Rfam assigns this 88-nucleotide sequence from Shewanella mangrovi to the family "t44 RNA". Rfam classes the family as a small RNA. The base pairs follow the family's consensus structure, which was predicted with LocARNA.
RNA sequence: AUGAAUUAAAUACGAAAUCACACACGUGUCGACACAUGUUCCGGGGUGCCUUUUUAGGUCGGAUUCAUGGGAUACGUGGAGGUAUAAC
Numbered sequence: 001a002u003g004a005a006u007u008a009a010a011u012a013c014g015a016a017a018u019c020a021c022a023c024a025c026g027u028g029u030c031g032a033c034a035c036a037u038g039u040u041c042c043g044g045g046g047u048g049c050c051u052u053u054u055u056a057g058g059u060c061g062g063a064u065u066c067a068u069g070g071g072a073u074a075c076g077u078g079g080a081g082g083u084a085u086a087a088c
Base pairs, nucleotide, nucleotide: 023078024077025076026075027074028073029072030071035069036068037067038066040063041062042061043060048059049058050057051056
This family consists of a number of bacterial RNA genes of between 135 and 170 bases in length. The t44 gene has been identified in several species of enteric bacteria but homologs have also been identified in Pseudomonas and Coxiella species.